The record is a 295-nucleotide RNA sequence from Parnassius apollo, which matches "Nuclear RNase P" in Rfam. The organism belongs to Parnassius, within Eukaryota. A search with the family's covariance model found it, with a score of 133 bits. Rfam classes the family as a ribozyme. The family is grouped with related families in Rfam's "RNaseP clan".

[Rfam]
RNA sequence: UCAAUGUUAAUCUCGUACUUGGGACACACACACAAGUGCUUGUCACUUACAACGUCUCGGGAAGGUCUGAGUAAAGGUAUCUGUGUUUUUAACACAUUCUAGCCGGAUGCUUCCUUAACAAGGAAGGCAAGGGGACCAGAAAUUAUAGUACAAUGUUUAGCCUAUGAUGCCAUUACUGGGGUGUUUGGAGGAGGCAUAGAUAUUGUUACUAUUGAAAUCCUUUGCAACCAGCAAUUUUAGCACAAUUUACGAGAUGACAAUUGUCACAACUCAAUUCAGACUAGUCUUUCAUUGA
Numbered sequence: 001u002c003a004a005u006g007u008u009a010a011u012c013u014c015g016u017a018c019u020u021g022g023g024a025c026a027c028a029c030a031c032a033c034a035a036g037u038g039c040u041u042g043u044c045a046c047u048u049a050c051a052a053c054g055u056c057u058c059g060g061g062a063a064g065g066u067c068u069g070a071g072u073a074a075a076g077g078u079a080u081c082u083g084u085g086u087u088u089u090u091a092a093c094a095c096a097u098u099c100u101a102g103c104c105g106g107a108u109g110c111u112u113c114c115u116u117a118a119c120a121a122g123g124a125a126g127g128c129a130a131g132g133g134g135a136c137c138a139g140a141a142a143u144u145a146u147a148g149u150a151c152a153a154u155g156u157u158u159a160g161c162c163u164a165u166g167a168u169g170c171c172a173u174u175a176c177u178g179g180g181g182u183g184u185u186u187g188g189a190g191g192a193g194g195c196a197u198a199g200a201u202a203u204u205g206u207u208a209c210u211a212u213u214g215a216a217a218u219c220c221u222u223u224g225c226a227a228c229c230a231g232c233a234a235u236u237u238u239a240g241c242a243c244a245a246u247u248u249a250c251g252a253g254a255u256g257a258c259a260a261u262u263g264u265c266a267c268a269a270c271u272c273a274a275u276u277c278a279g280a281c282u283a284g285u286c287u288u289u290c291a292u293u294g295a
Base pairs, nucleotide, nucleotide: 001295002294003293004292009287012253013252014251015250016249017248021058022057023056024055025054034048035047036046037045038044067279068278069277070276071275076229077228078227095109096108097107098106099105110126111125112124113123114122115121127225128224129223130222131221132220133219147210148209149208255266256265257264258263